[Rfam]
RNA: Mason-Pfizer monkey virus packaging signal
Organism: Callithrix jacchus
RNA sequence: UGGCACCCAACGUGGGGCUCUAGUACGAGGGACACAGUGAGGGACACCGUCGAGGUCAGCCGUCACAGAAGGAUUAAGAAACCUGGAGGAAAGAGCGUCGUGGGAACCUGCCACGGACUCGCGCUCCGGUAAGCGGACAGUGAAUAUGGGACAGGAAAUCAGCCAGCAUGAGUUGUUCAUAGAGAGUUUAAGUAAGGCUUUAAAGGCGCGGGGAGUAAAGGUGAAAAUAAAACGAUUGUGUAAAUAUUUUGACUAUAUUCAGGAUGUCUGCCCUU
Numbered sequence: 001u002g003g004c005a006c007c008c009a010a011c012g013u014g015g016g017g018c019u020c021u022a023g024u025a026c027g028a029g030g031g032a033c034a035c036a037g038u039g040a041g042g043g044a045c046a047c048c049g050u051c052g053a054g055g056u057c058a059g060c061c062g063u064c065a066c067a068g069a070a071g072g073a074u075u076a077a078g079a080a081a082c083c084u085g086g087a088g089g090a091a092a093g094a095g096c097g098u099c100g101u102g103g104g105a106a107c108c109u110g111c112c113a114c115g116g117a118c119u120c121g122c123g124c125u126c127c128g129g130u131a132a133g134c135g136g137a138c139a140g141u142g143a144a145u146a147u148g149g150g151a152c153a154g155g156a157a158a159u160c161a162g163c164c165a166g167c168a169u170g171a172g173u174u175g176u177u178c179a180u181a182g183a184g185a186g187u188u189u190a191a192g193u194a195a196g197g198c199u200u201u202a203a204a205g206g207c208g209c210g211g212g213g214a215g216u217a218a219a220g221g222u223g224a225a226a227a228u229a230a231a232a233c234g235a236u237u238g239u240g241u242a243a244a245u246a247u248u249u250u251g252a253c254u255a256u257a258u259u260c261a262g263g264a265u266g267u268c269u270g271c272c273c274u275u
Base pairs, nucleotide, nucleotide: 006031007030008029012026013025014024036050037047038046081130082129083128087125088124093120094119095118099115100114101113102112103111134154136152141148142147159202161200162198163197164196209251210250211249212248213247215245216244219237220236222234223233261274262273263272265270